Background:
Rhizobiales sRNA Atu_At1: a 108-nucleotide RNA from Agrobacterium tumefaciens. The base pairs follow the family's consensus structure, which was predicted with CMfinder. Rfam classes the family as a small RNA. The literature on the family includes a 2012 paper in RNA Biol by Wilms et al., "Deep sequencing uncovers numerous small RNAs on all four replicons of the plant pathogen Agrobacterium tumefaciens".
RNA sequence: AGGGCCGCCGUGUCAAACGGACACGAUGGUGCCGAAGAACACCGGGAUUUUUCCGUUUUCUCCCGGUGGCCAACGAAAUGGCAGCCGAGCUUCUUACCCAUCCGGCGC
Numbered sequence: 001a002g003g004g005c006c007g008c009c010g011u012g013u014c015a016a017a018c019g020g021a022c023a024c025g026a027u028g029g030u031g032c033c034g035a036a037g038a039a040c041a042c043c044g045g046g047a048u049u050u051u052u053c054c055g056u057u058u059u060c061u062c063c064c065g066g067u068g069g070c071c072a073a074c075g076a077a078a079u080g081g082c083a084g085c086c087g088a089g090c091u092u093c094u095u096a097c098c099c100a101u102c103c104g105g106c107g108c
Base pairs, nucleotide, nucleotide: 006107007106008105009104011023012022013021014020025102026101027100028099029098034093035092036091037090040068041067042066043065044064045063046062069082070081071080
Dot-bracket structure: .....((((.((((.....)))).(((((....((((..(((((((...............)))))))(((........))).......))))....))))).)))).